Rfam assigns this 197-nucleotide RNA from Paenibacillus sp. J45TS6 to the family "glmS glucosamine-6-phosphate activated ribozyme aptamer". It is annotated as a riboswitch. Rfam describes the family as follows. This entry contains a glucosamine-6-phosphate activated ribozyme that is found in the mRNA for GlmS. GlmS is an enzyme that uses fructose-6-phosphate and glutamine to generate glucosamine-6-phosphate. The ribozyme catalyses self cleavage of the glmS mRNA that is thought to regulate GlmS activity. The base pairs follow the family's consensus structure, which is taken from published work. A search with the family's covariance model found it, with a score of 81 bits.

RNA sequence: AACGUUUUAAAAGCGCCAGAACUUGUGCCAGCGUACGGAACCAGUUGUUGUCAUAACAAUUGGACGGAUGGGCAAGUUGACGAGGUGGAGGUGUUCGGAUUGUUCGGCGGGGACCUCCCGGUAUUCCACCAUACCGCUAAUUCGAGUACGGAAAAGAAACAGGUGACUGUUUUUACAACGAAUCGAUAGGUGAUUAA
Numbered sequence: 001a002a003c004g005u006u007u008u009a010a011a012a013g014c015g016c017c018a019g020a021a022c023u024u025g026u027g028c029c030a031g032c033g034u035a036c037g038g039a040a041c042c043a044g045u046u047g048u049u050g051u052c053a054u055a056a057c058a059a060u061u062g063g064a065c066g067g068a069u070g071g072g073c074a075a076g077u078u079g080a081c082g083a084g085g086u087g088g089a090g091g092u093g094u095u096c097g098g099a100u101u102g103u104u105c106g107g108c109g110g111g112g113a114c115c116u117c118c119c120g121g122u123a124u125u126c127c128a129c130c131a132u133a134c135c136g137c138u139a140a141u142u143c144g145a146g147u148a149c150g151g152a153a154a155a156g157a158a159a160c161a162g163g164u165g166a167c168u169g170u171u172u173u174u175a176c177a178a179c180g181a182a183u184c185g186a187u188a189g190g191u192g193a194u195u196a197a
Stems, first nucleotide, its partner, number of pairs: 020078007087118005095107004119136006142186004147181001156173007